[Rfam]
RNA sequence: UACACUUAAAUAACGAAAGCCCUGCCUUCUCUUUCAUCUUUGCGGCCCCUUGGCCACUCCAUUUGAUUUAAGACUUGCGAUGCGUA
Numbered sequence: 001u002a003c004a005c006u007u008a009a010a011u012a013a014c015g016a017a018a019g020c021c022c023u024g025c026c027u028u029c030u031c032u033u034u035c036a037u038c039u040u041u042g043c044g045g046c047c048c049c050u051u052g053g054c055c056a057c058u059c060c061a062u063u064u065g066a067u068u069u070a071a072g073a074c075u076u077g078c079g080a081u082g083c084g085u086a
Stems, first nucleotide, its partner, number of pairs: 034066003040061001042057001044055004